[Rfam]
RNA sequence: CCCCUGAAUAGCAAAGAGGGGAUACUCUCGUCAGAAUGGCGAGGGCCGGAGUGGGUCAGCUUCGGAAAAUCAUUAACAAGGAUGCAGAGACCACAUCCUACAAGC
Numbered sequence: 001c002c003c004c005u006g007a008a009u010a011g012c013a014a015a016g017a018g019g020g021g022a023u024a025c026u027c028u029c030g031u032c033a034g035a036a037u038g039g040c041g042a043g044g045g046c047c048g049g050a051g052u053g054g055g056u057c058a059g060c061u062u063c064g065g066a067a068a069a070u071c072a073u074u075a076a077c078a079a080g081g082a083u084g085c086a087g088a089g090a091c092c093a094c095a096u097c098c099u100a101c102a103a104g105c
Base pairs, nucleotide, nucleotide: 001021002020003019004018005017026044027043028042029041030040031039046065047064048063049062050061051060052059079099080098081097082096083095084094

The family of this 105-nucleotide RNA is "engA RNA". The sequence is in the family's curated seed alignment. By type it is a cis-regulatory element.